RNA sequence: AAAUAAAAGCAGAAGCACCCGCUUCUCGCCUUAGUUGAUUCAGUCACUGGGCUAGAUAGUUUUCAUCUAUUGAAUUAGGUGAAGUACGUGCGGGUUCUGGAAGAGAACUCGUUUUUUUAUUGCCGA
Numbered sequence: 001a002a003a004u005a006a007a008a009g010c011a012g013a014a015g016c017a018c019c020c021g022c023u024u025c026u027c028g029c030c031u032u033a034g035u036u037g038a039u040u041c042a043g044u045c046a047c048u049g050g051g052c053u054a055g056a057u058a059g060u061u062u063u064c065a066u067c068u069a070u071u072g073a074a075u076u077a078g079g080u081g082a083a084g085u086a087c088g089u090g091c092g093g094g095u096u097c098u099g100g101a102a103g104a105g106a107a108c109u110c111g112u113u114u115u116u117u118u119a120u121u122g123c124c125g126a
Base pairs, nucleotide, nucleotide: 011026012025013024014023015022016021028052029051030050034047035046037044090112091111092110093109094108095107096106097105098104